[Rfam]
The family of this 98-nucleotide RNA sequence from Gammaproteobacteria bacterium LSUCC0057 is "t44 RNA". About the family: This family consists of a number of bacterial RNA genes of between 135 and 170 bases in length. The organism belongs to Porticoccaceae, within Bacteria. By type it is a small RNA. Pairs were carried over by alignment from the consensus structure, which was predicted with LocARNA.
RNA sequence: GGUGCCGCAGCGUUAAAUCACACACGUUCCGUCACAGCUGUCUGGGUGCCGUCAAAAUGCGUUUUGCGGUUGAUAGUUGGGGAGCGUGGAGGCCUAAC
Numbered sequence: 001g002g003u004g005c006c007g008c009a010g011c012g013u014u015a016a017a018u019c020a021c022a023c024a025c026g027u028u029c030c031g032u033c034a035c036a037g038c039u040g041u042c043u044g045g046g047u048g049c050c051g052u053c054a055a056a057a058u059g060c061g062u063u064u065u066g067c068g069g070u071u072g073a074u075a076g077u078u079g080g081g082g083a084g085c086g087u088g089g090a091g092g093c094c095u096a097a098c
Base pairs, nucleotide, nucleotide: 023088024087025086026085027084028083029082030081035079036078037077038076039075040074041073042072048070049069050068051067052066